[Rfam]
RNA sequence: UAAUGGUGCAGGCGGAGGCAACUUCGGGCUGCGUACCCGGGUAACCGAGCGAAAGCUUAAGCGACAUGUAAUGUCGUCGGCCCCGGGGCUUUUCAUAUGGCCGCUCCUGUGGAGCGGCCUCUCUUCUAG
Numbered sequence: 001u002a003a004u005g006g007u008g009c010a011g012g013c014g015g016a017g018g019c020a021a022c023u024u025c026g027g028g029c030u031g032c033g034u035a036c037c038c039g040g041g042u043a044a045c046c047g048a049g050c051g052a053a054a055g056c057u058u059a060a061g062c063g064a065c066a067u068g069u070a071a072u073g074u075c076g077u078c079g080g081c082c083c084c085g086g087g088g089c090u091u092u093u094c095a096u097a098u099g100g101c102c103g104c105u106c107c108u109g110u111g112g113a114g115c116g117g118c119c120u121c122u123c124u125u126c127u128a129g
Base pairs, nucleotide, nucleotide: 007033008032009031010030011029013026014025015024016023017022036087037086038085039084040083041082045080046079047078048057049056050055061077062076063075064074065073066072099119100118101117102116103115104114105113106112

A member of the RNA family "DUF3800-I RNA" from Parafannyhessea umbonata, 129 nucleotides long.
Taxonomically the source falls in Parafannyhessea (Bacteria, Actinomycetota, Coriobacteriia, Coriobacteriales).
Actinobacteria, Firmicutes, Fusobacteria, Proteobacteria (1 example), Tenericutes (2 examples).
It is annotated as a small RNA.
The match comes from Rfam's covariance-model search (74 bits).